Background
The family of this 90-nucleotide sequence from Pipistrellus kuhlii is "mir-9261 microRNA precursor family". Its family is annotated with miRNA-mediated post-transcriptional gene silencing and RISC complex in the Gene Ontology.
RNA sequence: AACAAUUUGUCCCGCGUCCCGUGGUGUUUUUAAAAAGUCCCGAAAUCAGGACUUUUUUAAAACACCACGGGACGCGGGACAAAUUGUUAA
Dot-bracket structure: ((((((((((((((((((((((((((((((.((((..................)))).))))))))))))))))))))))))))))))..
Numbered sequence: 001a002a003c004a005a006u007u008u009g010u011c012c013c014g015c016g017u018c019c020c021g022u023g024g025u026g027u028u029u030u031u032a033a034a035a036a037g038u039c040c041c042g043a044a045a046u047c048a049g050g051a052c053u054u055u056u057u058u059a060a061a062a063c064a065c066c067a068c069g070g071g072a073c074g075c076g077g078g079a080c081a082a083a084u085u086g087u088u089a090a
Stems, first nucleotide, its partner, number of pairs: 001088030032057004